Source information
A member of the RNA family "ZMP/ZTP riboswitch aptamer (pfl RNA motif)" from Hydrogenophaga sp. A37, 154 nucleotides long. It scores 40 bits against the family's covariance model. The source organism's lineage runs through Bacteria, Betaproteobacteria, Burkholderiales, Comamonadaceae and Hydrogenophaga.
[Rfam]
RNA sequence: CUCCCUGUACGCAACUGGCGAUAGGCACAUUCCAACAUUGGAAGCAACGUGCUGACGUGGCCCCCCUGCCCUGCGACAUCGCGGCGGCCGGGACAACCACUGGGAAGCGUACCGCCCAUCGAAGGGCGUUCAGCCGUUCGCCUGGGCAGCCCCC
Dot-bracket structure: ....(.((((((..(([[[[[...................................((((....................................))))..))..)))))).)................(.(((..]]]]]..))).).....